[Rfam]
RNA: UnaL2 LINE 3' element
Organism: Coregonus sp. 'balchen'
RNA sequence: UAACAACUUAACUGUAAGUCGCUCUGGAUAAGAGCGUCUGUUAAAUGACUAAAA
Numbered sequence: 001u002a003a004c005a006a007c008u009u010a011a012c013u014g015u016a017a018g019u020c021g022c023u024c025u026g027g028a029u030a031a032g033a034g035c036g037u038c039u040g041u042u043a044a045a046u047g048a049c050u051a052a053a054a
Base pairs, nucleotide, nucleotide: 013043014041015040016039020036021035022034023033024032025031